[Rfam]
RNA sequence: UGACUGCGAUGAAGCGGGAGGUUGCCGACACACCCGGCCGCUUUGCCAUGGCGAGUGUGUGGGAAAUUUCCGUGGAGAAUGUCUAGUAAUUAGGCGAAAA
Numbered sequence: 001u002g003a004c005u006g007c008g009a010u011g012a013a014g015c016g017g018g019a020g021g022u023u024g025c026c027g028a029c030a031c032a033c034c035c036g037g038c039c040g041c042u043u044u045g046c047c048a049u050g051g052c053g054a055g056u057g058u059g060u061g062g063g064a065a066a067u068u069u070c071c072g073u074g075g076a077g078a079a080u081g082u083c084u085a086g087u088a089a090u091u092a093g094g095c096g097a098a099a100a
Stems, first nucleotide, its partner, number of pairs: 014073003018070004025062003080099001082097002086095002
RNA: S10-Clostridia ribosomal protein leader